[Rfam]
RNA sequence: AUAAUUUUUAAAGCGCCAGGAGUUAUAGUGAGAAGCAUGUUAAGACUAUAACUUGACGAGGAUGGGGUUUAAUCGAAUCUUCGGCGGGUGCCCCACGGUAAAACGCACUACCGUUAACGAUUGAUAAAAGCGAGAAGUGAUUUUCGUUACAAGAUUGAUCAGGUGCAAAAC
Numbered sequence: 001a002u003a004a005u006u007u008u009u010a011a012a013g014c015g016c017c018a019g020g021a022g023u024u025a026u027a028g029u030g031a032g033a034a035g036c037a038u039g040u041u042a043a044g045a046c047u048a049u050a051a052c053u054u055g056a057c058g059a060g061g062a063u064g065g066g067g068u069u070u071a072a073u074c075g076a077a078u079c080u081u082c083g084g085c086g087g088g089u090g091c092c093c094c095a096c097g098g099u100a101a102a103a104c105g106c107a108c109u110a111c112c113g114u115u116a117a118c119g120a121u122u123g124a125u126a127a128a129a130g131c132g133a134g135a136a137g138u139g140a141u142u143u144u145c146g147u148u149a150c151a152a153g154a155u156u157g158a159u160c161a162g163g164u165g166c167a168a169a170a171c
Stems, first nucleotide, its partner, number of pairs: 020054008029045001063095005073084004096113005119160005130147007
RNA: glmS glucosamine-6-phosphate activated ribozyme aptamer